Shown here is an 82-nucleotide RNA from Neogemmobacter tilapiae, a member of the family "DUF3800-VII RNA".

RNA sequence: GGUAGUCAAGCGCCGGGUUAAACCAGAGUGGUCGAGAGGCCGCAGGCGAGUGCGCAAUCAUGGUCCGGGGGGCUACCCUACC
Numbered sequence: 001g002g003u004a005g006u007c008a009a010g011c012g013c014c015g016g017g018u019u020a021a022a023c024c025a026g027a028g029u030g031g032u033c034g035a036g037a038g039g040c041c042g043c044a045g046g047c048g049a050g051u052g053c054g055c056a057a058u059c060a061u062g063g064u065c066c067g068g069g070g071g072g073c074u075a076c077c078c079u080a081c082c
Stems, first nucleotide, its partner, number of pairs: 001077007011069001013068004022064004028043006046055003
The match comes from Rfam's covariance-model search (38 bits).